Rfam assigns this 137-nucleotide RNA sequence from Echeneis naucrates to the family "Small nucleolar RNA SNORA22". The source organism's lineage runs through Eukaryota, Eumetazoa, Teleostei, Osteoglossocephalai and Echeneis. A search with the family's covariance model found it, with a score of 85 bits. It is annotated as an H/ACA-box small nucleolar RNA.

[Rfam]
RNA sequence: UUGCACAGAGAACACCCAAGGAUGUCAAAAUGACACUCCCUGGUCUCCUAUGUCUGUGCUACAUUGAUUCUGAUCUUUUCCUCUGCAUUAGGAGAAUUUCAGUCUCUCCUACAUGUAUUCAGUUGAUCAGAACAAAC
Numbered sequence: 001u002u003g004c005a006c007a008g009a010g011a012a013c014a015c016c017c018a019a020g021g022a023u024g025u026c027a028a029a030a031u032g033a034c035a036c037u038c039c040c041u042g043g044u045c046u047c048c049u050a051u052g053u054c055u056g057u058g059c060u061a062c063a064u065u066g067a068u069u070c071u072g073a074u075c076u077u078u079u080c081c082u083c084u085g086c087a088u089u090a091g092g093a094g095a096a097u098u099u100c101a102g103u104c105u106c107u108c109c110u111a112c113a114u115g116u117a118u119u120c121a122g123u124u125g126a127u128c129a130g131a132a133c134a135a136a137c
Base pairs, nucleotide, nucleotide: 003059004058005057006056007055008054010053014049016043017042018041020039022037024034025033026032061076063074064073065072066071083122084121085120086115087114088113090110091109092108093107094106095105
Dot-bracket structure: ..((((((.(...(.(((.(.(.(((.....)))..).).))).....)...))))))).(.((((....)))).)......((((((.((((((.........))))))..)))....)))...............